[Rfam]
The record is an 84-nucleotide RNA from Bombyx mori, which matches "mir-2807 microRNA precursor family" in Rfam. The literature on the family includes a 2010 paper in Funct Integr Genomics by Cai et al., "Novel microRNAs in silkworm (Bombyx mori)".
RNA sequence: CCUGGUCAAAUUUGUAUGCAUUUGGAACAGCGCCCUUAGCGACAAACCUAGGCAAACAUUCCAGCUCCAUACAAAUUUGAGUUA
Numbered sequence: 001c002c003u004g005g006u007c008a009a010a011u012u013u014g015u016a017u018g019c020a021u022u023u024g025g026a027a028c029a030g031c032g033c034c035c036u037u038a039g040c041g042a043c044a045a046a047c048c049u050a051g052g053c054a055a056a057c058a059u060u061c062c063a064g065c066u067c068c069a070u071a072c073a074a075a076u077u078u079g080a081g082u083u084a
Stems, first nucleotide, its partner, number of pairs: 008078009018068001020066001022064006034052003039047001
The source organism's lineage runs through Eukaryota, Aparaglossata, Panorpida, Lepidoptera and Bombyx.